The record is a 115-nucleotide sequence from Parechovirus ahumpari, which matches "Human parechovirus 1 (HPeV1) cis regulatory element (CRE)" in Rfam.
Lineage of the source: Viruses > Pisoniviricetes > Picornavirales > Parechovirus ahumpari > Parechovirus A.
Rfam's curators put it in the seed alignment.
For this family Rfam cites "Terminal RNA replication elements in human parechovirus 1" (Nateri et al., J Virol, 2002).
Gene Ontology term of the family: viral genome replication.
Rfam classes the family as a cis-regulatory element.
This family represents a Parechovirus cis regulatory element which is located in the 5'-terminal 112 nucleotides of the genome of human parechovirus 1 (HPeV1). The family consists of two stem-loop structures (SL-A and SL-B) together with a pseudoknot. Disruption of any of these elements impairs both viral replication and growth.
RNA sequence: UUUGAAAGGGGUCUCCUAGAGAGCUUGCCUAGGGCCUUAUAACCCGACUUGCUGAGCUUCUAUAGGAAAAAACCCUUUCCCAGCCUUGGGGUGGCUGGUCAAUAAAAACCCCCAU
Numbered sequence: 001u002u003u004g005a006a007a008g009g010g011g012u013c014u015c016c017u018a019g020a021g022a023g024c025u026u027g028c029c030u031a032g033g034g035c036c037u038u039a040u041a042a043c044c045c046g047a048c049u050u051g052c053u054g055a056g057c058u059u060c061u062a063u064a065g066g067a068a069a070a071a072a073c074c075c076u077u078u079c080c081c082a083g084c085c086u087u088g089g090g091g092u093g094g095c096u097g098g099u100c101a102a103u104a105a106a107a108a109c110c111c112c113c114a115u
Stems, first nucleotide, its partner, number of pairs: 004079007012069001014067005020061001021059007029051001030047001032045003080098006088112005